[Rfam]
RNA sequence: GUAGAUGUGGCAGUGUGGUUAGCUGGUUGUGUGUCAGGGUCACAACCACUAUCUGCACUGCUCCCUCUCC
Numbered sequence: 001g002u003a004g005a006u007g008u009g010g011c012a013g014u015g016u017g018g019u020u021a022g023c024u025g026g027u028u029g030u031g032u033g034u035c036a037g038g039g040u041c042a043c044a045a046c047c048a049c050u051a052u053c054u055g056c057a058c059u060g061c062u063c064c065c066u067c068u069c070c
Base pairs, nucleotide, nucleotide: 003068004067005066009062010061012059013058014057015056016055017054018053020051021050022049024048025047026046027045028044029043030042031041
This 70-nucleotide RNA from Penaeus vannamei belongs to the Rfam family "mir-34 microRNA precursor family". The match comes from Rfam's covariance-model search (60 bits). The source organism's lineage runs through Eukaryota, Metazoa, Eumetazoa, Altocrustacea and Penaeus. Rfam describes the family as follows. Human mir-34a was discovered computationally and later experimentally verified. Rfam links the family to the GO terms miRNA-mediated post-transcriptional gene silencing and RISC complex. The literature on the family includes a 2003 paper in Science by Lim et al., "Vertebrate microRNA genes".